[Rfam]
RNA sequence: AUGCUGACCCCAUGCCUGCUGACGUUGUCAGCGACAUGCCAGGCAAUCAUCGGUCUUCGAGGUUGCGGCGCAGUUUCCACUGCGUGACCGAGCCAGCUCGCACCGCAUCCAUACGCGAGCGGCCACCAGUCUCUGGUGGUGGAUGC
Numbered sequence: 001a002u003g004c005u006g007a008c009c010c011c012a013u014g015c016c017u018g019c020u021g022a023c024g025u026u027g028u029c030a031g032c033g034a035c036a037u038g039c040c041a042g043g044c045a046a047u048c049a050u051c052g053g054u055c056u057u058c059g060a061g062g063u064u065g066c067g068g069c070g071c072a073g074u075u076u077c078c079a080c081u082g083c084g085u086g087a088c089c090g091a092g093c094c095a096g097c098u099c100g101c102a103c104c105g106c107a108u109c110c111a112u113a114c115g116c117g118a119g120c121g122g123c124c125a126c127c128a129g130u131c132u133c134u135g136g137u138g139g140u141g142g143a144u145g146c
Base pairs, nucleotide, nucleotide: 011038012037013036014035015033018032019031020030021029022028023027043066044065045064046063047062048061052089053088054087055086068085069084070083071082072081073080115146116145117144122140123139124138125137126136127135128134129133
The family of this 146-nucleotide RNA from Herminiimonas arsenicoxydans is "radC RNA". Lineage of the source: Bacteria > Pseudomonadati > Pseudomonadota > Burkholderiales > Herminiimonas.